This 131-nucleotide RNA from Streptococcus infantis belongs to the Rfam family "Ribosomal protein L20 leader". Rfam's curators write: This family is a putative r-protein leader autoregulatory structure found in B. subtilis and other low-GC Gram-positive bacteria. Gene Ontology term of the family: regulation of gene expression. Lineage of the source: Bacteria > Bacillota > Lactobacillales > Streptococcaceae > Streptococcus infantis.

[Rfam]
RNA sequence: UGAGAAAAGCAGAAGUGAGAACUUCUCGCCUUGCGACUAACGUUGUCUGGCCCCUACAGAUCAAGUUUCAGAAAUGAACUAUAAUCAUGUAGAGCGGAUUUGCGUUAGCAAGUCCGCUCUUGUUUUUCUCU
Numbered sequence: 001u002g003a004g005a006a007a008a009g010c011a012g013a014a015g016u017g018a019g020a021a022c023u024u025c026u027c028g029c030c031u032u033g034c035g036a037c038u039a040a041c042g043u044u045g046u047c048u049g050g051c052c053c054c055u056a057c058a059g060a061u062c063a064a065g066u067u068u069c070a071g072a073a074a075u076g077a078a079c080u081a082u083a084a085u086c087a088u089g090u091a092g093a094g095c096g097g098a099u100u101u102g103c104g105u106u107a108g109c110a111a112g113u114c115c116g117c118u119c120u121u122g123u124u125u126u127u128c129u130c131u
Stems, first nucleotide, its partner, number of pairs: 011026006028051003033046005093118010